RNA: skipping-rope RNA
RNA sequence: GUUAUUUGAGGUGGUAAAUUGUGUCAACCACACACCUUAUAGGUCAAAAGAGAUGUAGGAAAUGAUACACCUACCAAAUAAC
Numbered sequence: 001g002u003u004a005u006u007u008g009a010g011g012u013g014g015u016a017a018a019u020u021g022u023g024u025c026a027a028c029c030a031c032a033c034a035c036c037u038u039a040u041a042g043g044u045c046a047a048a049a050g051a052g053a054u055g056u057a058g059g060a061a062a063u064g065a066u067a068c069a070c071c072u073a074c075c076a077a078a079u080a081a082c
Stems, first nucleotide, its partner, number of pairs: 001082008011031005021068005033050001034044004055074005